[Rfam]
RNA sequence: ACCUCGGUAGCACAGCUGGUUAGUGCACCUUACGCGAGAUAAGGUUACGUAGGUUCGAAUCCUACUUGCGGUA
Numbered sequence: 001a002c003c004u005c006g007g008u009a010g011c012a013c014a015g016c017u018g019g020u021u022a023g024u025g026c027a028c029c030u031u032a033c034g035c036g037a038g039a040u041a042a043g044g045u046u047a048c049g050u051a052g053g054u055u056c057g058a059a060u061c062c063u064a065c066u067u068g069c070g071g072u073a
Stems, first nucleotide, its partner, number of pairs: 001072003005068003010026004028044005049065005